Shown here is a 60-nucleotide RNA sequence from Curtobacterium sp. MCBD17_032, a member of the family "msiK RNA". The organism belongs to Curtobacterium, within Bacteria. It scores 56 bits against the family's covariance model. Pairs were carried over by alignment from the consensus structure, which is taken from published work.
RNA sequence: ACAGGCCGCCGCUUCACAACGGAUCGUCCGGCACGUACCUGCCGGUGGAGAGGACCGAAC
Dot-bracket structure: .........(.(((((...........((((((......))))))))))).)........